Group I catalytic intron: a 331-nucleotide sequence from Castanea mollissima. A search with the family's covariance model found it, with a score of 118 bits.

RNA sequence: CCAUUAAUUUUUACUAUUAGGUGGUUAAGAGGUAAUUUCGAAAGAAAUAUGCCUAGUAUUAUUAUUAGCGAUAGUAAUGAUGCGACAUUGUCAAAUUGCGGGGACGUCCUGCUAUGUCAAAGCUACCGCAGCUUAGAUGAAAAUCUAGGUGAGCACCAGAUAUAAUGAUCUCGGGGAUGGUAAUAACGCUUUGAAUAGGGAUAAUCCGCAGCCAAAUCCUUUUUUGUCUCCGAUAGACAAUGGAUGCAGUUCACAGACUAAAUGGCAAUGGGUUUAAGUUUAUAAUUUAACUUAAGCUUAAGAUAUAGUCGGACCACUGUGAAAACAGAUG
Numbered sequence: 001c002c003a004u005u006a007a008u009u010u011u012u013a014c015u016a017u018u019a020g021g022u023g024g025u026u027a028a029g030a031g032g033u034a035a036u037u038u039c040g041a042a043a044g045a046a047a048u049a050u051g052c053c054u055a056g057u058a059u060u061a062u063u064a065u066u067a068g069c070g071a072u073a074g075u076a077a078u079g080a081u082g083c084g085a086c087a088u089u090g091u092c093a094a095a096u097u098g099c100g101g102g103g104a105c106g107u108c109c110u111g112c113u114a115u116g117u118c119a120a121a122g123c124u125a126c127c128g129c130a131g132c133u134u135a136g137a138u139g140a141a142a143a144u145c146u147a148g149g150u151g152a153g154c155a156c157c158a159g160a161u162a163u164a165a166u167g168a169u170c171u172c173g174g175g176g177a178u179g180g181u182a183a184u185a186a187c188g189c190u191u192u193g194a195a196u197a198g199g200g201a202u203a204a205u206c207c208g209c210a211g212c213c214a215a216a217u218c219c220u221u222u223u224u225u226g227u228c229u230c231c232g233a234u235a236g237a238c239a240a241u242g243g244a245u246g247c248a249g250u251u252c253a254c255a256g257a258c259u260a261a262a263u264g265g266c267a268a269u270g271g272g273u274u275u276a277a278g279u280u281u282a283u284a285a286u287u288u289a290a291c292u293u294a295a296g297c298u299u300a301a302g303a304u305a306u307a308g309u310c311g312g313a314c315c316a317c318u319g320u321g322a323a324a325a326c327a328g329a330u331g
Base pairs, nucleotide, nucleotide: 001024002023003022004021005020007018030038031037086270087269088268089267090266092264093263097210098209099208100207101206102205107201108200109199110198211250212249216245217244218243219242225239226238227237228236254311256310257309258308259307260306272297273296274295275294276293277292278291279290280289317328318327319326320325